[Rfam]
RNA sequence: AAGAAAGUGACUGCUGCCCCGCACAGGGGCGAGCUAAUAGAACGCGAACACAACAAGUUUCAUAGAAGCCGAAGUGCAUCAAACGGUGUAGAAGCCCGAACCCCGAACCCCGAACCCCGAACCCCGA
Numbered sequence: 001a002a003g004a005a006a007g008u009g010a011c012u013g014c015u016g017c018c019c020c021g022c023a024c025a026g027g028g029g030c031g032a033g034c035u036a037a038u039a040g041a042a043c044g045c046g047a048a049c050a051c052a053a054c055a056a057g058u059u060u061c062a063u064a065g066a067a068g069c070c071g072a073a074g075u076g077c078a079u080c081a082a083a084c085g086g087u088g089u090a091g092a093a094g095c096c097c098g099a100a101c102c103c104c105g106a107a108c109c110c111c112g113a114a115c116c117c118c119g120a121a122c123c124c125c126g127a
Base pairs, nucleotide, nucleotide: 011091012090013089014088015031016030017029018028019027020026057084058083059082111119112118
Dot-bracket structure: ..........((((((((((.....)))))).........................(((......................)))...))))...................((.....))........
The record is a 127-nucleotide RNA from Caballeronia glathei, which matches "Burkholderia sRNA Bp1_Cand684_SIPHT" in Rfam. On this family, see Khoo et al., BMC Genomics 2012: "Computational discovery and RT-PCR validation of novel Burkholderia conserved and Burkholderia pseudomallei unique sRNAs".